[Rfam]
RNA sequence: AUUCUUUUGCAGUGGCGAUAUCAUAGCCUAUGAAGUCCAUCUGAGGCGUGAUUAUUGCUGGUUGAAAACUUAACCCAAUACCCCGCUUGGGGUGACUUCAAAUAUAGUCAUCCCUGGCAAUAUUUGAUAGUCUCAUGUGAGA
Numbered sequence: 001a002u003u004c005u006u007u008u009g010c011a012g013u014g015g016c017g018a019u020a021u022c023a024u025a026g027c028c029u030a031u032g033a034a035g036u037c038c039a040u041c042u043g044a045g046g047c048g049u050g051a052u053u054a055u056u057g058c059u060g061g062u063u064g065a066a067a068a069c070u071u072a073a074c075c076c077a078a079u080a081c082c083c084c085g086c087u088u089g090g091g092g093u094g095a096c097u098u099c100a101a102a103u104a105u106a107g108u109c110a111u112c113c114c115u116g117g118c119a120a121u122a123u124u125u126g127a128u129a130g131u132c133u134c135a136u137g138u139g140a141g142a
Stems, first nucleotide, its partner, number of pairs: 020052005026047003034042002085118003089114009131142004
The record is a 142-nucleotide RNA sequence from Salmo salar, which matches "U4 spliceosomal RNA" in Rfam. U4 small nuclear RNA (U4 snRNA) is a component of the major U2-dependent spliceosome. The source organism's lineage runs through Eukaryota, Eumetazoa, Deuterostomia, Chordata and Salmo. By type it is a spliceosomal small nuclear RNA. Pairs were carried over by alignment from the consensus structure, which is taken from published work. The family is grouped with related families in Rfam's "U4 clan". Gene Ontology terms of the family: spliceosomal tri-snRNP complex assembly and U4 snRNP. The literature on the family includes a 1997 paper in Nucleic Acids Res by Zwieb, "The uRNA database".